[Rfam]
RNA: Plant signal recognition particle RNA
Organism: Handroanthus impetiginosus
RNA sequence: GCCGAGCUUAGUAACUUGAGCUUGUACCCCAAGUGGGGGCAUUAAUAUGAUUGUAUAUUAGGCUUGUUUCACUAGCUGGGCCAGGUGUGGGCAAUUGCUGGCUUGCCCGUUCCAAGUGGGGAGUCGGGCCUUGUGGUCUAGGCGAAGGCAUAGGUUCCGUGGCUUCUACAGUGGGGGGCAAUGCGUGAGGCUGGUUUCACAGAGCAACGAAAACCUCUUGCUCCCUACAGUGGGAGGAUAACGUGUCGGUGCUUCAUUGGCUCUUCAAAGCUAGUUGGGCUAGCCCUUAAUUGGACAAUCACAUUU
Dot-bracket structure: (((((((((((....))))))))....(((....))))))...(((.((((((..(((((((((.(.((.((((((((((((((..(.(((..(...(((((.((.((.(((((.(((((((((.(((((.((.((((((.((....)).)))))).)).)))))(....).(((((....(.(((....(((......)))....))).)..))))).)))))))))..)))))))....)).)))))).)))).))))))).....))))))).)).).))))..))).))..)))))).))).